The record is a 170-nucleotide part of an RNA from Tolypocladium ophioglossoides, which matches "Ascomycota telomerase RNA" in Rfam. Gene Ontology terms of the family: telomerase activity, telomere maintenance via telomerase and telomerase catalytic core complex. For this family Rfam cites "The common ancestral core of vertebrate and fungal telomerase RNAs" (Qi et al., Nucleic Acids Res, 2013).
RNA sequence: UCACCUGUCGGCAUCCGCAAGGACGUUGACAACUCCCUCGGUGUGCUCCCGAAAGGGAGAGGCCGAGAUGAAAGCGCGGGUUUUCCGGAUGUCUUUUGUCCGCGCGUGAAAGCCCUCCUUGCUCGCUCUUACAAGAGCAUGUUGGAGAGGAUACAAAAACAAUCCUUGUU
Numbered sequence: 001u002c003a004c005c006u007g008u009c010g011g012c013a014u015c016c017g018c019a020a021g022g023a024c025g026u027u028g029a030c031a032a033c034u035c036c037c038u039c040g041g042u043g044u045g046c047u048c049c050c051g052a053a054a055g056g057g058a059g060a061g062g063c064c065g066a067g068a069u070g071a072a073a074g075c076g077c078g079g080g081u082u083u084u085c086c087g088g089a090u091g092u093c094u095u096u097u098g099u100c101c102g103c104g105c106g107u108g109a110a111a112g113c114c115c116u117c118c119u120u121g122c123u124c125g126c127u128c129u130u131a132c133a134a135g136a137g138c139a140u141g142u143u144g145g146a147g148a149g150g151a152u153a154c155a156a157a158a159a160c161a162a163u164c165c166u167u168g169u170u
Base pairs, nucleotide, nucleotide: 006031007030008029009028010027011026012025014023015022016021036070037067038066039065040064041063046061047060048059050055088164089163090162091160092159094158095157096156097155098154099153113150114149115147116146117145118144127137129135130134